This 87-nucleotide RNA sequence from Paenibacillus psychroresistens belongs to the Rfam family "c-di-GMP-I riboswitch aptamer". GEMM was predicted in a large-scale screen for bacterial structured RNA regulatory elements. The family's consensus secondary structure is taken from published work. The match comes from Rfam's covariance-model search (82 bits).
RNA sequence: AGACGAGAAGGGCAAACUUAUCGAAAGAUAAGGGCGCAAAGCUGCAGACCUAAAGGUUGUUGGACCAAUGGUGGCUGGGUUACCGAA
Numbered sequence: 001a002g003a004c005g006a007g008a009a010g011g012g013c014a015a016a017c018u019u020a021u022c023g024a025a026a027g028a029u030a031a032g033g034g035c036g037c038a039a040a041g042c043u044g045c046a047g048a049c050c051u052a053a054a055g056g057u058u059g060u061u062g063g064a065c066c067a068a069u070g071g072u073g074g075c076u077g078g079g080u081u082a083c084c085g086a087a
Base pairs, nucleotide, nucleotide: 012037013036017032018031019030020029021028022027040081041080042079043078045077046076047075048072049071050070055066056065057064058063